[Rfam]
The family of this 66-nucleotide RNA from Plasmodium cynomolgi is "small nucleolar RNA snoR25". The literature on the family includes a 2007 paper in RNA by Chakrabarti et al., "Structural RNAs of known and unknown function identified in malaria parasites by comparative genomics and RNA analysis". The family's RNA type in Rfam is C/D-box small nucleolar RNA.
Nucleotides: 066
Stems, first nucleotide, its partner, number of pairs: 001065004
Number, partner (000 for none) and nucleotide at each position: 001065u002064u003063u004062u005000a006000a007000u008000g009000a010000u011000g012000a013000a014000a015000a016000a017000a018000a019000c020000a021000g022000a023000c024000c025000u026000g027000a028000u029000u030000c031000g032000a033000a034000a035000c036000c037000a038000a039000u040000u041000u042000g043000a044000g045000a046000a047000u048000g049000a050000a051000u052000u053000c054000u055000a056000u057000u058000c059000u060000g061000a062004a063003a064002a065001a066000a